[Rfam]
RNA: Mason-Pfizer monkey virus packaging signal
RNA sequence: UGGCGCCCAACGUGGGGCACGAUACUGAGGCAGCAGUGAGGGAGAUGAUGUGAAAAGGAAUGCAUUCAACAAAUUUUGAGAUACAUCGGAGCCGCCGUGGGAACCUGCCUUGGCUGAAACCUAAAGUAAGUGGAAACGUCUGAUCAUGGGGCAAGAAUUGAGUCAGCAAUGAGCUUUAUGUUAAGCAGUUAAAGGACACUUUAAAGACACGGGGAGUAAAGGUUAAGACUAUGGAUUUGUUUCAUUUUUUUGAUUUUGUUAAAGAAAUUUGUCCCU
Number, nucleotide and partner (000 for none) at each position: 001u000002g000003g000004c000005g000006c030007c029008c000009a000010a000011c000012g025013u024014g023015g000016g000017g000018c000019a000020c000021g000022a000023u014024a013025c012026u000027g000028a000029g007030g006031c000032a000033g000034c000035a000036g046037u045038g000039a000040g000041g000042g000043a000044g000045a037046u036047g000048a000049u000050g000051u000052g000053a000054a000055a000056a000057g000058g000059a000060a000061u000062g000063c000064a000065u000066u000067c000068a000069a000070c000071a000072a000073a000074u000075u000076u000077u000078g000079a000080g000081a000082u128083a127084c126085a000086u123087c000088g000089g000090a000091g000092c116093c000094g000095c000096c112097g111098u000099g109100g108101g000102a000103a000104c000105c000106u000107g000108c100109c099110u000111u097112g096113g000114c000115u000116g092117a000118a000119a000120c000121c000122u000123a086124a000125a000126g084127u083128a082129a000130g000131u000132g000133g000134a000135a000136a000137c151138g000139u150140c149141u148142g147143a000144u000145c000146a000147u142148g141149g140150g139151g137152c000153a000154a000155g000156a000157a000158u000159u203160g202161a201162g199163u198164c000165a000166g000167c000168a000169a000170u000171g000172a000173g000174c000175u000176u000177u000178a000179u000180g000181u000182u000183a000184a000185g000186c000187a000188g000189u000190u000191a000192a000193a000194g000195g000196a000197c000198a163199c162200u000201u161202u160203a159204a000205a000206g000207a000208c000209a000210c252211g251212g250213g249214g248215a247216g246217u000218a000219a000220a238221g237222g236223u235224u234225a000226a000227g000228a000229c000230u000231a000232u000233g000234g224235a223236u222237u221238u220239g000240u000241u000242u000243c000244a000245u000246u216247u215248u214249u213250u212251u211252g210253a000254u000255u000256u000257u000258g000259u000260u000261a276262a000263a000264g273265a272266a000267a000268u000269u000270u000271g000272u265273c264274c000275c000276u261